[Rfam]
RNA sequence: CUGUGGUGCAUUGUAGUUGCAUUGCAUGGUGCUGCAGCCUAGUGCAAUGUGUCUGCAGCGCAAUACAG
Numbered sequence: 001c002u003g004u005g006g007u008g009c010a011u012u013g014u015a016g017u018u019g020c021a022u023u024g025c026a027u028g029g030u031g032c033u034g035c036a037g038c039c040u041a042g043u044g045c046a047a048u049g050u051g052u053c054u055g056c057a058g059c060g061c062a063a064u065a066c067a068g
Stems, first nucleotide, its partner, number of pairs: 001068004006064001007062003011058006019050001021048007
Dot-bracket structure: ((((.((((.((((((..(.(((((((..............))))))).)..)))))).))).)))))

The record is a 68-nucleotide RNA sequence from Astyanax mexicanus, which matches "mir-33 microRNA precursor family" in Rfam. For this family Rfam cites "Direct sequencing and expression analysis of a large number of miRNAs in Aedes aegypti and a multi-species survey of novel mosquito miRNAs" (Li et al., BMC Genomics, 2009). Taxonomically the source falls in Astyanax (Eukaryota, Metazoa, Eumetazoa, Teleostei).